[Rfam]
Nucleotides: 073
Stems, first nucleotide, its partner, number of pairs: 001073002004070001006067006013060002016057006026048001
Number, partner (000 for none) and nucleotide at each position: 001073a002072c003000u004070g005000c006067c007066u008065g009064g010063u011062u012000g013060c014059a015000a016057c017056u018055g019054g020053u021052g022000g023000a024000u025000a026048g027000u028000g029000u030000u031000c032000u033000g034000u035000u036000g037000u038000a039000g040000a041000g042000u043000c044000g045000a046000u047000c048026u049000a050000a051000g052021c053020a054019c055018c056017a057016g058000u059014u060013g061000a062011a063010a064009u065008c066007a067006g068000a069000g070004c071000u072002g073001u

About this RNA: mir-29 microRNA precursor family: a 73-nucleotide sequence from Strongylocentrotus purpuratus. The family has 168 seed sequences and 3,328 matches in Rfam 15.1. It is one of the family's seed sequences.